[Rfam]
RNA sequence: UGGCACCCGUUUGGGGCUCCUGGUAUGAAGGGCUCAAUGAGGGAGCCGUCCUGAGACACGUGCGUAAAAGUGAAACUACAAGUUUUGUGACCAACGCUACGCGGGAGCCUUCCGUGCCACUAGAGUCAUGGUAAGUGGAUGGCUAUCCUUUCCCUUUUUUUGUGGCAUGGGUCAGGCAUUAAGUAAUCAUAAGUGCUUUGUGUCAAGUUUAAGUAAAGCUUUAAAGACAAGAGGGAUAAAGGCUAAAGAAAAAGAUUUAUUGCAGUACUUUCAAUUUAUUCCUAAGGUUUGCCCUU
Dot-bracket structure: .....((....((..........))....))((((.......))))...................................(((.((.......((...(((((.......)))))....).)...)).))).....((................................))......(((((.................................)).))).......((((.((..(((.(.........).)))......)).))))............((((.....))))
Numbered sequence: 001u002g003g004c005a006c007c008c009g010u011u012u013g014g015g016g017c018u019c020c021u022g023g024u025a026u027g028a029a030g031g032g033c034u035c036a037a038u039g040a041g042g043g044a045g046c047c048g049u050c051c052u053g054a055g056a057c058a059c060g061u062g063c064g065u066a067a068a069a070g071u072g073a074a075a076c077u078a079c080a081a082g083u084u085u086u087g088u089g090a091c092c093a094a095c096g097c098u099a100c101g102c103g104g105g106a107g108c109c110u111u112c113c114g115u116g117c118c119a120c121u122a123g124a125g126u127c128a129u130g131g132u133a134a135g136u137g138g139a140u141g142g143c144u145a146u147c148c149u150u151u152c153c154c155u156u157u158u159u160u161u162g163u164g165g166c167a168u169g170g171g172u173c174a175g176g177c178a179u180u181a182a183g184u185a186a187u188c189a190u191a192a193g194u195g196c197u198u199u200g201u202g203u204c205a206a207g208u209u210u211a212a213g214u215a216a217a218g219c220u221u222u223a224a225a226g227a228c229a230a231g232a233g234g235g236a237u238a239a240a241g242g243c244u245a246a247a248g249a250a251a252a253a254g255a256u257u258u259a260u261u262g263c264a265g266u267a268c269u270u271u272c273a274a275u276u277u278a279u280u281c282c283u284a285a286g287g288u289u290u291g292c293c294c295u296u
Stems, first nucleotide, its partner, number of pairs: 006031002012025002032046004082132003086128002095123001096121001100116005138173002180223003183219002231271004236266002240258003244254001284296004